A member of the RNA family "SAM (S-adenosyl methionine) riboswitch aptamer" from Nesterenkonia sandarakina, 134 nucleotides long. Clan: SAM clan. Lineage of the source: Bacteria > Bacillati > Micrococcales > Micrococcaceae > Nesterenkonia.
[Rfam]
Nucleotides: 134
Base pairs, nucleotide, nucleotide: 001080002079003078004077009038011037012036013035014034015033016032021030022029039067040066041065044063045062046061048058049057083123084122085121086120087119088118089117090116
Number, partner (000 for none) and nucleotide at each position: 001080g002079g003078u004077c005000a006000a007000g008000a009038g010000u011037g012036c013035c014034a015033g016032c017000g018000c019000a020000a021030a022029a023000c024000c025000c026000c027000g028000g029022u030021u031000u032016g033015c034014u035013g036012g037011c038009c039067g040066g041065c042000a043000a044063c045062c046061c047000u048058c049057c050000a051000g052000u053000u054000c055000g056000c057049g058048g059000u060000g061046g062045g063044g064000u065041g066040c067039c068000c069000c070000g071000g072000g073000u074000g075000a076000c077004g078003a079002c080001c081000u082000g083123g084122c085121u086120g087119c088118g089117g090116c091000a092000g093000u094000c095000u096000u097000c098000g099000a100000c101000a102000a103000g104000g105000u106000u107000c108000a109000u110000c111000g112000a113000c114000u115000g116090g117089c118088c119087g120086u121085g122084g123083c124000a125000a126000g127000c128000g129000c130000g131000g132000g133000c134000c